[Rfam]
RNA sequence: AGUACUUUUAAAUCAGUCCAGAGAGGCUGACAAAGUGGAAUGAAUAUUAUGGGUAUAUUAAAAUUUAAUUAGUGAUUUAGGCUUUUGUCAGUAUUGACAAAAGCCUUUAUUUUU
Numbered sequence: 001a002g003u004a005c006u007u008u009u010a011a012a013u014c015a016g017u018c019c020a021g022a023g024a025g026g027c028u029g030a031c032a033a034a035g036u037g038g039a040a041u042g043a044a045u046a047u048u049a050u051g052g053g054u055a056u057a058u059u060a061a062a063a064u065u066u067a068a069u070u071a072g073u074g075a076u077u078u079a080g081g082c083u084u085u086u087g088u089c090a091g092u093a094u095u096g097a098c099a100a101a102a103g104c105c106u107u108u109a110u111u112u113u114u
Stems, first nucleotide, its partner, number of pairs: 003037006013030006038070002041067005047061003076109001079106011
Rfam assigns this 114-nucleotide RNA from Clostridium niameyense to the family "PyrR binding site". NCBI's taxonomy places the organism under Bacteria, Bacillota, Clostridia, Clostridiaceae, Clostridium. Pairs were carried over by alignment from the consensus structure, which is taken from published work. It is annotated as a cis-regulatory element. The match comes from Rfam's covariance-model search (68 bits).